[Rfam]
Record summary:
This 136-nucleotide sequence from Austrofundulus limnaeus belongs to the Rfam family "Small nucleolar RNA SNORA13". A search with the family's covariance model found it, with a score of 53 bits. Rfam 15.1 lists 1,034 matches to the family in 605 species. Rfam classes the family as an H/ACA-box small nucleolar RNA. Rfam describes the family as follows. ACA13 is a member of the H/ACA class of snoRNA that guide the sites of modification of uridines to pseudouridines. The family is grouped with related families in Rfam's "SNORA13 clan". NCBI's taxonomy places the organism under Eukaryota, Euteleosteomorpha, Percomorphaceae, Aplocheiloidei, Austrofundulus. Its family is annotated with RNA processing and nucleolus in the Gene Ontology.
RNA sequence: UGCCUUUAUGUGUUGCCCCUUUCAUUGUCUCUGUUGUGAUCGGGGUGUCAAAUAAGGCACACAUUGACUUUUUGUGGUUGUCUGUGAAAUGAGAGAAAUAAGUGCUCAUUUACAUAAAACAGCUGCAAAGACAGAA
Numbered sequence: 001u002g003c004c005u006u007u008a009u010g011u012g013u014u015g016c017c018c019c020u021u022u023c024a025u026u027g028u029c030u031c032u033g034u035u036g037u038g039a040u041c042g043g044g045g046u047g048u049c050a051a052a053u054a055a056g057g058c059a060c061a062c063a064u065u066g067a068c069u070u071u072u073u074g075u076g077g078u079u080g081u082c083u084g085u086g087a088a089a090u091g092a093g094a095g096a097a098a099u100a101a102g103u104g105c106u107c108a109u110u111u112a113c114a115u116a117a118a119a120c121a122g123c124u125g126c127a128a129a130g131a132c133a134g135a136a
Stems, first nucleotide, its partner, number of pairs: 002058005011050002014047004018042001021039002023036002071129004077123005089115003092111002097106001